The record is an 85-nucleotide RNA sequence from Eleutherodactylus coqui, which matches "Small nucleolar RNA SNORD127" in Rfam. A search with the family's covariance model found it, with a score of 62 bits. On this family, see Yang et al., Nucleic Acids Res 2006: "snoSeeker: an advanced computational package for screening of guide and orphan snoRNA genes in the human genome". Taxonomically the source falls in Eleutherodactylus (Eukaryota, Eumetazoa, Anura, Hyloidea). Its family is annotated with RNA processing and nucleolus in the Gene Ontology. The family's consensus secondary structure was predicted with WAR.
RNA sequence: UGGCAAUCGUGAUGACCUAUGAGAUGUCUGUAAGUAAUUUAUAUUACAACAUGUUGACAACUGUCCCUCUAAGCUGACCUUGCCG
Numbered sequence: 001u002g003g004c005a006a007u008c009g010u011g012a013u014g015a016c017c018u019a020u021g022a023g024a025u026g027u028c029u030g031u032a033a034g035u036a037a038u039u040u041a042u043a044u045u046a047c048a049a050c051a052u053g054u055u056g057a058c059a060a061c062u063g064u065c066c067c068u069c070u071a072a073g074c075u076g077a078c079c080u081u082g083c084c085g
Stems, first nucleotide, its partner, number of pairs: 001085006